Annotation: The family of this 47-nucleotide sequence from Nocardioides sp. Root122 is "L31-Actinobacteria ribosomal protein leader".
RNA sequence: UCGGUUCCGGUUCACGUCCUUGCAUCCGCGCGGGACGACCCGGAGCA
Dot-bracket structure: ....(.((((....(((((.(((......))))))))..))))...)

On this family, see Eckert and Weinberg, BMC Microbiol 2020: "Discovery of 20 novel ribosomal leader candidates in bacteria and archaea". The source organism's lineage runs through Bacteria, Bacillati, Actinomycetes, Propionibacteriales and Nocardioides.